[Rfam]
RNA: ZMP/ZTP riboswitch aptamer (pfl RNA motif)
Nucleotides: 085
Base pairs, nucleotide, nucleotide: 004054005053006052007051008050009049010048011047012046015043016042017073018072019071020070021069028039029038030037031036064078065077066076
Number, partner (000 for none) and nucleotide at each position: 001000c002000a003000a004054g005053a006052u007051u008050c009049u010048g011047a012046u013000u014000a015043c016042u017073g018072a019071c020070g021069g022000a023000u024000a025000a026000a027000u028039g029038u030037g031036g032000a033000g034000u035000a036031c037030c038029a039028c040000a041000g042016g043015g044000g045000a046012a047011u048010c049009a050008g051007a052006a053005u054004u055000a056000u057000a058000a059000u060000g061000a062000a063000a064078g065077c066076c067000g068000a069021c070020c071019g072018u073017c074000u075000g076066g077065g078064c079000a080000g081000c082000a083000u084000u085000u